[Rfam]
RNA sequence: CUCACUUCAACCUCUGAUUCGCUUGGUGCAGGUCGGGAACCAUUACAUCCACAGUUUCCCUCGGUAAAUUGGAUCCUGCCUUGCAUCAAUCGAAUCGGAGGCUGCAGUGAAU
Numbered sequence: 001c002u003c004a005c006u007u008c009a010a011c012c013u014c015u016g017a018u019u020c021g022c023u024u025g026g027u028g029c030a031g032g033u034c035g036g037g038a039a040c041c042a043u044u045a046c047a048u049c050c051a052c053a054g055u056u057u058c059c060c061u062c063g064g065u066a067a068a069u070u071g072g073a074u075c076c077u078g079c080c081u082u083g084c085a086u087c088a089a090u091c092g093a094a095u096c097g098g099a100g101g102c103u104g105c106a107g108u109g110a111a112u
Base pairs, nucleotide, nucleotide: 013099014098017095018094019093020092023089024088025087026086027085028084029083030082031081032080034078035077036076037075038074040072041071
This 112-nucleotide RNA belongs to the Rfam family "MIR168 microRNA precursor family". The family has 10 seed sequences and 518 matches in Rfam 15.1. Gene Ontology terms of the family: miRNA-mediated post-transcriptional gene silencing and RISC complex.